[Rfam]
RNA sequence: UUACUGGACGCUUUAGCUAUUGAACUGUUUUGUGCCUCUCGGUCAAAAAAAAAUUGUUCUCUGUCAGAGAGUGCCAGAACAGUUCAAUAGCUAAAGCGUCUAGUAAC
Numbered sequence: 001u002u003a004c005u006g007g008a009c010g011c012u013u014u015a016g017c018u019a020u021u022g023a024a025c026u027g028u029u030u031u032g033u034g035c036c037u038c039u040c041g042g043u044c045a046a047a048a049a050a051a052a053a054u055u056g057u058u059c060u061c062u063g064u065c066a067g068a069g070a071g072u073g074c075c076a077g078a079a080c081a082g083u084u085c086a087a088u089a090g091c092u093a094a095a096g097c098g099u100c101u102a103g104u105a106a107c
Stems, first nucleotide, its partner, number of pairs: 001106006011096018029068004049058002051055001
RNA: mir-8517 microRNA precursor family
Organism: Plutella xylostella